RNA: Small nucleolar RNA U105B
Organism: Podarcis muralis
RNA sequence: CCUGAUGCAAAUGAUGACAAUGUGUUUUGCUGAGUGAAACCUGUGAUUCUCACUUCAAAGUAAACGCACUGAUGCAUCUGGA
Numbered sequence: 001c002c003u004g005a006u007g008c009a010a011a012u013g014a015u016g017a018c019a020a021u022g023u024g025u026u027u028u029g030c031u032g033a034g035u036g037a038a039a040c041c042u043g044u045g046a047u048u049c050u051c052a053c054u055u056c057a058a059a060g061u062a063a064a065c066g067c068a069c070u071g072a073u074g075c076a077u078c079u080g081g082a
Base pairs, nucleotide, nucleotide: 005077006076007075008074009073010021012019013018033054034053035052036051037050